[Rfam]
Nucleotides: 114
Base pairs, nucleotide, nucleotide: 004111005110006109007108008107009106010105017029018028019027031094032093033084034083035048036047037046038045043082044081064080065079066078067077068076086097087096088095
Number, partner (000 for none) and nucleotide at each position: 001000u002000a003000u004111u005110a006109a007108c008107u009106u010105c011000a012000g013000g014000g015000c016000a017029g018028g019027g020000u021000u022000a023000g024000a025000u026000u027019c028018c029017c030000u031094a032093c033084c034083g035048g036047c037046g038045g039000u040000a041000c042000a043082g044081c045038c046037c047036g048035c049000g050000a051000g052000c053000g054000u055000a056000a057000a058000g059000c060000a061000u062000g063000a064080a065079c066078u067077g068076g069000u070000g071000a072000g073000a074000u075000u076068c077067c078066a079065g080064u081044g082043c083034c084033g085000a086097c087096a088095g089000u090000a091000u092000a093032g094031u095088c096087u097086g098000g099000a100000u101000g102000a103000a104000a105010g106009a107008a108007g109006u110005u111004a112000u113000c114000u
Description: Shown here is a 114-nucleotide RNA from Eubacterium sp. CAG:248, a member of the family "FMN riboswitch aptamer (RFN element)". Gene Ontology term of the family: FMN binding. The base pairs follow the family's consensus structure, which is taken from published work. It scores 110 bits against the family's covariance model.